Rfam assigns this 90-nucleotide RNA from Sideroxydans sp. CL21 to the family "c-di-GMP-I riboswitch aptamer".
RNA sequence: AUCAAGCAAAAGCAAACCUAUUGAAAGAUAGGGACGCAAAGUUACCGGUCUAAGGAACCGUCAUGGUUCUACGACAGCGGGAUUGCCGGU
Numbered sequence: 001a002u003c004a005a006g007c008a009a010a011a012g013c014a015a016a017c018c019u020a021u022u023g024a025a026a027g028a029u030a031g032g033g034a035c036g037c038a039a040a041g042u043u044a045c046c047g048g049u050c051u052a053a054g055g056a057a058c059c060g061u062c063a064u065g066g067u068u069c070u071a072c073g074a075c076a077g078c079g080g081g082a083u084u085g086c087c088g089g090u
Stems, first nucleotide, its partner, number of pairs: 012037002017032006040084004045080003048075003055069004

Taxonomically the source falls in Sideroxydans (Bacteria, Pseudomonadati, Pseudomonadota, Nitrosomonadales). It scores 78 bits against the family's covariance model. Rfam 15.1 lists 5,092 matches to the family in 1,772 species.